The record is a 92-nucleotide RNA sequence from Nomascus leucogenys, which matches "Y RNA" in Rfam. Rfam describes the family as follows. Y RNAs are components of the Ro ribonucleoprotein particle (Ro RNP), in association with Ro60 and La proteins. The Y RNAs and Ro60 and La proteins are well conserved, but the function of the Ro RNP is not known. In humans the RNA component can be one of four small RNAs -- hY1, hY3, hY4 and hY5. Rfam classes the family as a non-coding RNA gene. The family's consensus secondary structure is taken from published work. The match comes from Rfam's covariance-model search (58 bits).
Nucleotides: 092
Stems, first nucleotide, its partner, number of pairs: 001088001003086006010080002014076002016071006030050001
Number, partner (000 for none) and nucleotide at each position: 001088g002000u003086c004085u005084g006083g007082u008081u009000c010080a011079a012000a013000g014076g015075c016071a017070g018069u019068g020067a021066g022000u023000u024000a025000u026000c027000u028000c029000a030050a031000c032000u033000u034000a035000u036000c037000a038000a039000a040000c041000u042000c043000c044000u045000u046000g047000u048000u049000c050030u051000a052000c053000u054000c055000u056000u057000u058000a059000c060000c061000c062000c063000c064000u065000u066021c067020u068019c069018a070017c071016u072000a073000c074000u075015g076014c077000a078000c079011u080010u081008g082007a083006c084005u085004a086003g087000u088001c089000u090000a091000a092000a